[Rfam]
RNA sequence: AUCCAACUCAAACACUACUCUUAAACUUUUCAAGGUUCUUUACCUGCAUCUAUAUUCAUCAUGUCUCCUUGUGCCUGCAACUGCUGCUCUGGCGAGUGCAACUCCUGCUCUUGUGCCACCUGCACUGUAUGUUGCUGCUAGCU
Numbered sequence: 001a002u003c004c005a006a007c008u009c010a011a012a013c014a015c016u017a018c019u020c021u022u023a024a025a026c027u028u029u030u031c032a033a034g035g036u037u038c039u040u041u042a043c044c045u046g047c048a049u050c051u052a053u054a055u056u057c058a059u060c061a062u063g064u065c066u067c068c069u070u071g072u073g074c075c076u077g078c079a080a081c082u083g084c085u086g087c088u089c090u091g092g093c094g095a096g097u098g099c100a101a102c103u104c105c106u107g108c109u110c111u112u113g114u115g116c117c118a119c120c121u122g123c124a125c126u127g128u129a130u131g132u133u134g135c136u137g138c139u140a141g142c143u
Base pairs, nucleotide, nucleotide: 070094071093072092077087078086079085098123099122100121107114108113
RNA: A. fumigatus sRNA Afu_254
Organism: Penicillium cf. griseofulvum